[Rfam]
Rfam assigns this 52-nucleotide RNA sequence from Enterococcus gallinarum to the family "Na+ riboswitch aptamer (DUF1646)". The organism belongs to Enterococcus gallinarum, within Bacteria. A reference for the family is White et al. (2022), "Na(+) riboswitches regulate genes for diverse physiological processes in bacteria", Nat Chem Biol. Its family is annotated with sodium ion binding and regulation of gene expression in the Gene Ontology. It is one of the family's seed sequences.
RNA sequence: GGUUGAGCAUUUCGAUGCUUCAAGGAUCACGUUCUCCAAGGGGUGAGGAGAA
Numbered sequence: 001g002g003u004u005g006a007g008c009a010u011u012u013c014g015a016u017g018c019u020u021c022a023a024g025g026a027u028c029a030c031g032u033u034c035u036c037c038a039a040g041g042g043g044u045g046a047g048g049a050g051a052a
Stems, first nucleotide, its partner, number of pairs: 003023003006019005032052006